Shown here is a 137-nucleotide sequence from Paenibacillus hemerocallicola, a member of the family "c-di-AMP riboswitch aptamer (ydaO/yuaA leader)". Rfam's curators write: This family represents a conserved RNA structure found upstream of the ydaO and yuaA genes in Bacillus subtilis and related genes in other bacteria. It scores 70 bits against the family's covariance model.
RNA sequence: AAUCGAAACAUGCCGAAUUCCUGCGCAAGCAGGAAACGGGGGAACCAUUCCGGGUGAAUUGAUCUCGCAUGCAAGUGAUCAUAGGGCACCUUCGACCGAACCCUCAGCUAACCUCGUAGGCACCGGAAGGAGUCGCC
Numbered sequence: 001a002a003u004c005g006a007a008a009c010a011u012g013c014c015g016a017a018u019u020c021c022u023g024c025g026c027a028a029g030c031a032g033g034a035a036a037c038g039g040g041g042g043a044a045c046c047a048u049u050c051c052g053g054g055u056g057a058a059u060u061g062a063u064c065u066c067g068c069a070u071g072c073a074a075g076u077g078a079u080c081a082u083a084g085g086g087c088a089c090c091u092u093c094g095a096c097c098g099a100a101c102c103c104u105c106a107g108c109u110a111a112c113c114u115c116g117u118a119g120g121c122a123c124c125g126g127a128a129g130g131a132g133u134c135g136c137c
Base pairs, nucleotide, nucleotide: 011122012121013120014119018035019034020033021032022031023030024029036117037116038115039114040113041112052103053102054101060081061080062079063078084097085096087094